Notes:
This 216-nucleotide sequence belongs to the Rfam family "IS605-orfB-I RNA". The family's RNA type in Rfam is small RNA.
[Rfam]
RNA sequence: ACCUUAUAUAAAUGUAGUAACGCAAGACAGUUACGCAUUUCCCUGUAAGGUGGUGUUUCAAUAGAAGUAUAAGCGACAAGUCUUAUUGUUAAGCUACGAGUUGAAAUAAGAUGAGCUUAUAUAGAAUAGGUUAACCGUAAGACCUUGAGUUGAAAAACUCUAAAAUUAACCUAGGGAUUGAAUUUUUAAAAUUUCGUAUCUCCUAGUUACGGUCGU
Numbered sequence: 001a002c003c004u005u006a007u008a009u010a011a012a013u014g015u016a017g018u019a020a021c022g023c024a025a026g027a028c029a030g031u032u033a034c035g036c037a038u039u040u041c042c043c044u045g046u047a048a049g050g051u052g053g054u055g056u057u058u059c060a061a062u063a064g065a066a067g068u069a070u071a072a073g074c075g076a077c078a079a080g081u082c083u084u085a086u087u088g089u090u091a092a093g094c095u096a097c098g099a100g101u102u103g104a105a106a107u108a109a110g111a112u113g114a115g116c117u118u119a120u121a122u123a124g125a126a127u128a129g130g131u132u133a134a135c136c137g138u139a140a141g142a143c144c145u146u147g148a149g150u151u152g153a154a155a156a157a158c159u160c161u162a163a164a165a166u167u168a169a170c171c172u173a174g175g176g177a178u179u180g181a182a183u184u185u186u187u188a189a190a191a192u193u194u195c196g197u198a199u200c201u202c203c204u205a206g207u208u209a210c211g212g213u214c215g216u
Base pairs, nucleotide, nucleotide: 001051002050003049004048005047006046007045008044010040011039012038013037014036015035017034018033019032020031021030022028067122068121069120070119071118072117073116074115081111082110083109084108085107086106087105092102093101128145129144130143131142132141134213135212136211137210138209139208140166147160148159149158150157151156171206172205173204174203175202176200177199178198179196180195181194182193

It is one of the family's seed sequences.